A member of the RNA family "MIR2275 microRNA precursor family" from Sorghum bicolor, 120 nucleotides long. It scores 78 bits against the family's covariance model. Lineage of the source: Eukaryota > Streptophyta > Magnoliopsida > Andropogoneae > Sorghum.
RNA sequence: GCACUGAAAGUGAGAGUUGGAGGAAAGCAAACCGAUUGACCAUCCGAUUCUGCAACGGGUUCGAUGGGUAAACAUGAUUGCCGGUCGGUUUGUUUUCCUCCAAUAUCUCACCUUCAGUCG
Numbered sequence: 001g002c003a004c005u006g007a008a009a010g011u012g013a014g015a016g017u018u019g020g021a022g023g024a025a026a027g028c029a030a031a032c033c034g035a036u037u038g039a040c041c042a043u044c045c046g047a048u049u050c051u052g053c054a055a056c057g058g059g060u061u062c063g064a065u066g067g068g069u070a071a072a073c074a075u076g077a078u079u080g081c082c083g084g085u086c087g088g089u090u091u092g093u094u095u096u097c098c099u100c101c102a103a104u105a106u107c108u109c110a111c112c113u114u115c116a117g118u119c120g
Stems, first nucleotide, its partner, number of pairs: 004117005011110004016104006023097008032088007